[Rfam]
RNA: RNA anti-toxin A
RNA sequence: CUAUAAUAGCAUUGAAAAGAGAGAUAUGCUGUAACAUACCUCUCUAGUGUAGAGCCGUUUAAGACGGUGACCGAUUUUGUUACAAAAAA
Numbered sequence: 001c002u003a004u005a006a007u008a009g010c011a012u013u014g015a016a017a018a019g020a021g022a023g024a025u026a027u028g029c030u031g032u033a034a035c036a037u038a039c040c041u042c043u044c045u046a047g048u049g050u051a052g053a054g055c056c057g058u059u060u061a062a063g064a065c066g067g068u069g070a071c072c073g074a075u076u077u078u079g080u081u082a083c084a085a086a087a088a089a
Base pairs, nucleotide, nucleotide: 025038026037027036028035054068055067056066057065058064059063